mir-9256 microRNA precursor family: a 67-nucleotide RNA from Cnephaeus nilssonii. The organism belongs to Cnephaeus, within Eukaryota. The base pairs follow the family's consensus structure, which was predicted with RNAalifold. Its family is annotated with RISC complex and miRNA-mediated post-transcriptional gene silencing in the Gene Ontology. It scores 80 bits against the family's covariance model.

[Rfam]
RNA sequence: CCAUACACUGAGUGGCCAGAUUAUUAUGAUUUCUGAAUGCAUAAUAAUCGGGCCACUCAGUAUAAUU
Number, nucleotide and partner (000 for none) at each position: 001c000002c000003a000004u064005a063006c000007a061008c060009u059010g058011a057012g056013u055014g054015g053016c052017c051018a000019g049020a048021u047022u046023a045024u044025u043026a042027u041028g040029a000030u000031u000032u000033c000034u000035g000036a000037a000038u000039g000040c028041a027042u026043a025044a024045u023046a022047a021048u020049c019050g000051g017052g016053c015054c014055a013056c012057u011058c010059a009060g008061u007062a000063u005064a004065a000066u000067u000